Source information
Rfam assigns this 95-nucleotide RNA from Hathewaya histolytica to the family "pan motif". It scores 45 bits against the family's covariance model. NCBI's taxonomy places the organism under Bacteria, Bacillati, Eubacteriales, Clostridiaceae, Hathewaya. The family's RNA type in Rfam is cis-regulatory element.

RNA sequence: UGGGUAGUAUCUUAUCUGAAAGAACUGCACCGUUUGUUUAUUGUUAGUGUUUAUAUUUUAGUGCUUAUAUCCUUCUAUAGGAAUAAGACAACUUA
Numbered sequence: 001u002g003g004g005u006a007g008u009a010u011c012u013u014a015u016c017u018g019a020a021a022g023a024a025c026u027g028c029a030c031c032g033u034u035u036g037u038u039u040a041u042u043g044u045u046a047g048u049g050u051u052u053a054u055a056u057u058u059u060a061g062u063g064c065u066u067a068u069a070u071c072c073u074u075c076u077a078u079a080g081g082a083a084u085a086a087g088a089c090a091a092c093u094u095a
Stems, first nucleotide, its partner, number of pairs: 001032003004028005010023004062090002064087005070082003